[Rfam]
Shown here is an 82-nucleotide RNA from Lepisosteus oculatus, a member of the family "mir-130 microRNA precursor family". The match comes from Rfam's covariance-model search (41 bits). The literature on the family includes a 2002 paper in Curr Biol by Lagos-Quintana et al., "Identification of tissue-specific microRNAs from mouse".
RNA sequence: GUGUGUCUGACGCCCUUUCGUUAUUGCACUGCUAGCUGUAGCUGUCACAGUAGUGCAACAGGGAAAGAGUCUCAGACAACAC
Numbered sequence: 001g002u003g004u005g006u007c008u009g010a011c012g013c014c015c016u017u018u019c020g021u022u023a024u025u026g027c028a029c030u031g032c033u034a035g036c037u038g039u040a041g042c043u044g045u046c047a048c049a050g051u052a053g054u055g056c057a058a059c060a061g062g063g064a065a066a067g068a069g070u071c072u073c074a075g076a077c078a079a080c081a082c
Stems, first nucleotide, its partner, number of pairs: 001082003005077006012070002015067005022060001024058007

The source organism's lineage runs through Eukaryota, Opisthokonta, Teleostomi, Actinopteri and Lepisosteus. The base pairs follow the family's consensus structure, which was predicted with PFOLD.